[Rfam]
The family of this 206-nucleotide sequence from Miscanthus lutarioriparius is "MIR6217 microRNA precursor family". Taxonomically the source falls in Miscanthus (Eukaryota, Streptophytina, Spermatophyta, Petrosaviidae). The family has 2 seed sequences and 2,266 matches in Rfam 15.1.

RNA sequence: AUAACUUAUUAUGUGGCCACUUUGAAUUACGAUAAUUACUAUUCUAAUUUAUGAGAUUACAGUAACUCUUUACUAAGUGAUUUACUAUAACAUUAUGGUAAAUAUCACCAUGAGUUGUAGUAACACAAGUAUCGUAAAUGCAUAUUCAUAUUAUCGUAAAUUGGUAUAAAUAUUAUCGUAAAUCAAGGUGGCAUAGAAUAAGUUAU
Numbered sequence: 001a002u003a004a005c006u007u008a009u010u011a012u013g014u015g016g017c018c019a020c021u022u023u024g025a026a027u028u029a030c031g032a033u034a035a036u037u038a039c040u041a042u043u044c045u046a047a048u049u050u051a052u053g054a055g056a057u058u059a060c061a062g063u064a065a066c067u068c069u070u071u072a073c074u075a076a077g078u079g080a081u082u083u084a085c086u087a088u089a090a091c092a093u094u095a096u097g098g099u100a101a102a103u104a105u106c107a108c109c110a111u112g113a114g115u116u117g118u119a120g121u122a123a124c125a126c127a128a129g130u131a132u133c134g135u136a137a138a139u140g141c142a143u144a145u146u147c148a149u150a151u152u153a154u155c156g157u158a159a160a161u162u163g164g165u166a167u168a169a170a171u172a173u174u175a176u177c178g179u180a181a182a183u184c185a186a187g188g189u190g191g192c193a194u195a196g197a198a199u200a201a202g203u204u205a206u
Stems, first nucleotide, its partner, number of pairs: 001206010012195003016192008027181010040168003044164009055155003059151001061149001062147001064145001069138005077132003081128002083122009093112001098106001